[Rfam]
RNA: tRNA
RNA sequence: GGAUAGUUGCUUGAGUGGCCGAAAAGGUUAGUCUCGAAAACUAAUAAUGUCGAAAGGCAUUCAAGGGUUCAAAUCCCUUACUAUCCG
Dot-bracket structure: (((((((..(((...........))).(((((.......)))))..................(((((.......)))))))))))).
Numbered sequence: 001g002g003a004u005a006g007u008u009g010c011u012u013g014a015g016u017g018g019c020c021g022a023a024a025a026g027g028u029u030a031g032u033c034u035c036g037a038a039a040a041c042u043a044a045u046a047a048u049g050u051c052g053a054a055a056g057g058c059a060u061u062c063a064a065g066g067g068u069u070c071a072a073a074u075c076c077c078u079u080a081c082u083a084u085c086c087g
Stems, first nucleotide, its partner, number of pairs: 001086007010026003028044005063079005